[Rfam]
Eukaryotic large subunit ribosomal RNA: a 460-nucleotide part of an RNA from Yarrowia lipolytica.
RNA sequence: UAGAAUAAUGUAGAUAAGGGAAGUCGGCAAAAUAGAUCCGUAACUUCGGGAUAAGGAUUGGCUCUGGGGGUUGGUGGAUGGAAGCGUGGGAGACCCCAAGGGACUGGCAGCUGGGCAACUGGCAGCCGGACCCGCGGCAGACACUGCGUCGCUCCGUCCACAUCAUCAACCGCCCCAGAACUGGUACGGACAAGGGGAAUCUGACUGUCUAAUUAAAACAUAGCUUUGCGAUGGUUGUAAAACAAUGUUGACGCAAAGUGAUUUCUGCCCAGUGCUCUGAAUGUCAAAGUGAAGAAAUUCAACCAAGCGCGCGGGUAAACGGCGGGAGUAACUAUGCUCUCUUAAGGUAGCCAAAUGCCUCGUCAUCUAAUUAGUGACGCGCAUGAAUGGAUUAACGAGAUUCCCACUGUCCCUAUCUACUAUGUAGCGAAACCACAGCCAAGGGAACGGGCUUGGCAGA
Numbered sequence: 001u002a003g004a005a006u007a008a009u010g011u012a013g014a015u016a017a018g019g020g021a022a023g024u025c026g027g028c029a030a031a032a033u034a035g036a037u038c039c040g041u042a043a044c045u046u047c048g049g050g051a052u053a054a055g056g057a058u059u060g061g062c063u064c065u066g067g068g069g070g071u072u073g074g075u076g077g078a079u080g081g082a083a084g085c086g087u088g089g090g091a092g093a094c095c096c097c098a099a100g101g102g103a104c105u106g107g108c109a110g111c112u113g114g115g116c117a118a119c120u121g122g123c124a125g126c127c128g129g130a131c132c133c134g135c136g137g138c139a140g141a142c143a144c145u146g147c148g149u150c151g152c153u154c155c156g157u158c159c160a161c162a163u164c165a166u167c168a169a170c171c172g173c174c175c176c177a178g179a180a181c182u183g184g185u186a187c188g189g190a191c192a193a194g195g196g197g198a199a200u201c202u203g204a205c206u207g208u209c210u211a212a213u214u215a216a217a218a219c220a221u222a223g224c225u226u227u228g229c230g231a232u233g234g235u236u237g238u239a240a241a242a243c244a245a246u247g248u249u250g251a252c253g254c255a256a257a258g259u260g261a262u263u264u265c266u267g268c269c270c271a272g273u274g275c276u277c278u279g280a281a282u283g284u285c286a287a288a289g290u291g292a293a294g295a296a297a298u299u300c301a302a303c304c305a306a307g308c309g310c311g312c313g314g315g316u317a318a319a320c321g322g323c324g325g326g327a328g329u330a331a332c333u334a335u336g337c338u339c340u341c342u343u344a345a346g347g348u349a350g351c352c353a354a355a356u357g358c359c360u361c362g363u364c365a366u367c368u369a370a371u372u373a374g375u376g377a378c379g380c381g382c383a384u385g386a387a388u389g390g391a392u393u394a395a396c397g398a399g400a401u402u403c404c405c406a407c408u409g410u411c412c413c414u415a416u417c418u419a420c421u422a423u424g425u426a427g428c429g430a431a432a433c434c435a436c437a438g439c440c441a442a443g444g445g446a447a448c449g450g451g452c453u454u455g456g457c458a459g460a
Base pairs, nucleotide, nucleotide: 001426002425004423010420011419012418013417014416015415016414018412019411020410035059036058037057038056039055044049060182061181063179064178065177066176067175068174069171070170071169072168073167075160076159077158078157079156080155081154082153084149085148086147088144090142096137097136100133101132102131104129105128106127107126108125110123111122112121113120114119183187195405196404197403198402199401200400201399202397203396206220207219208218223259224258225257226256227255228254229253230252234246235245236244237243263391264390265389267323268322269321272320273319274316275315276314277313279312282311283310284309290301291300292299293298324341325340326339327338328337342346362378363377364376365375366374439456440455441454442453443452